This 509-nucleotide RNA sequence from Nocardiopsis eucommiae belongs to the Rfam family "Saccharopolyspora sRNA 350". Pairs were carried over by alignment from the consensus structure, which was predicted with RNAfold. Rfam links the family to the GO term regulation of secondary metabolite biosynthetic process.

RNA sequence: UUGACGGUGAAUCCCCAGACGGGGUCGGUGUCCAGGAGGUACCGCUCACCGACGUUGUCGCCGUCCGCGAGCACACCGAGGCGGUUGGUCUCCCCGUAGGCGCCCUCGCUGGUCUUGUGGACGCGCCCGUGCGCCAGGAGGAACAGCCGGUCCGCGGGCGUGCCCUCCUGGGCGAGGACCUCGCCCGGCUCGAACUCCCGCUGGGUGAAGCGCCCGGCCAGGGCCUCCAGGACCUCGAUGUCGUCGUAGCCGCGCAGCACGGCCAGCUCCCCGAGCUCGCGCGGGAUCACGCGCACCUCGGAGCCGGUCUGCUCGAAGUCGAUCCGGCCGUCGCCGAUGGUGUAGGUCAGUCGGCGGUUCACCCGGUAGGCGCCGCCGUCGGUCUGGACCCAGGGGAGCGUCUUGAGCAGCCAGCGGGAGCUCUUCCCCUGCAUCUGCGGCGCGGACUUGGUGGUGGUCGCCAGGUUCCGCGCGGCGGCGGUCGCCAGGCUCUGCUGUUCGCUGGUCCG
Numbered sequence: 001u002u003g004a005c006g007g008u009g010a011a012u013c014c015c016c017a018g019a020c021g022g023g024g025u026c027g028g029u030g031u032c033c034a035g036g037a038g039g040u041a042c043c044g045c046u047c048a049c050c051g052a053c054g055u056u057g058u059c060g061c062c063g064u065c066c067g068c069g070a071g072c073a074c075a076c077c078g079a080g081g082c083g084g085u086u087g088g089u090c091u092c093c094c095c096g097u098a099g100g101c102g103c104c105c106u107c108g109c110u111g112g113u114c115u116u117g118u119g120g121a122c123g124c125g126c127c128c129g130u131g132c133g134c135c136a137g138g139a140g141g142a143a144c145a146g147c148c149g150g151u152c153c154g155c156g157g158g159c160g161u162g163c164c165c166u167c168c169u170g171g172g173c174g175a176g177g178a179c180c181u182c183g184c185c186c187g188g189c190u191c192g193a194a195c196u197c198c199c200g201c202u203g204g205g206u207g208a209a210g211c212g213c214c215c216g217g218c219c220a221g222g223g224c225c226u227c228c229a230g231g232a233c234c235u236c237g238a239u240g241u242c243g244u245c246g247u248a249g250c251c252g253c254g255c256a257g258c259a260c261g262g263c264c265a266g267c268u269c270c271c272c273g274a275g276c277u278c279g280c281g282c283g284g285g286a287u288c289a290c291g292c293g294c295a296c297c298u299c300g301g302a303g304c305c306g307g308u309c310u311g312c313u314c315g316a317a318g319u320c321g322a323u324c325c326g327g328c329c330g331u332c333g334c335c336g337a338u339g340g341u342g343u344a345g346g347u348c349a350g351u352c353g354g355c356g357g358u359u360c361a362c363c364c365g366g367u368a369g370g371c372g373c374c375g376c377c378g379u380c381g382g383u384c385u386g387g388a389c390c391c392a393g394g395g396g397a398g399c400g401u402c403u404u405g406a407g408c409a410g411c412c413a414g415c416g417g418g419a420g421c422u423c424u425u426c427c428c429c430u431g432c433a434u435c436u437g438c439g440g441c442g443c444g445g446a447c448u449u450g451g452u453g454g455u456g457g458u459c460g461c462c463a464g465g466u467u468c469c470g471c472g473c474g475g476c477g478g479c480g481g482u483c484g485c486c487a488g489g490c491u492c493u494g495c496u497g498u499u500c501g502c503u504g505g506u507c508c509g
Stems, first nucleotide, its partner, number of pairs: 006390003011385001014382002018328001021325002025322005031316002035313002038310002042306001047303001049301004054233002058229001060227001063224002065111001067109002077102002081097004118221001120219001122217001127212001130209001134204004140198002143196001150191001154189002156186004161178001165174001167172001235295001240290002243287003251281004256277003261270002329342004352378006360372001362370002391431007400422001403418002407415001437476002440473001442471005447465006477508002480503003484499001486497003

Record summary
It is annotated as an antisense RNA. Rfam 15.1 lists 1,170 matches to the family in 705 species.